[Rfam]
RNA sequence: AAAAUGCAAGGGGUGCAGGGGAAGUUGCGUUCCCCUGCCUGUUAAGGAGGGUGCUCAGACACGUAGUGUCGUCGAAAGGGUU
Numbered sequence: 001a002a003a004a005u006g007c008a009a010g011g012g013g014u015g016c017a018g019g020g021g022a023a024g025u026u027g028c029g030u031u032c033c034c035c036u037g038c039c040u041g042u043u044a045a046g047g048a049g050g051g052u053g054c055u056c057a058g059a060c061a062c063g064u065a066g067u068g069u070c071g072u073c074g075a076a077a078g079g080g081u082u
Base pairs, nucleotide, nucleotide: 015038016037017036018035019034020033021032022031058070059069060068061067
Clostridiales-2 RNA: an 82-nucleotide RNA. The family's consensus secondary structure is taken from published work. The sequence is in the family's curated seed alignment.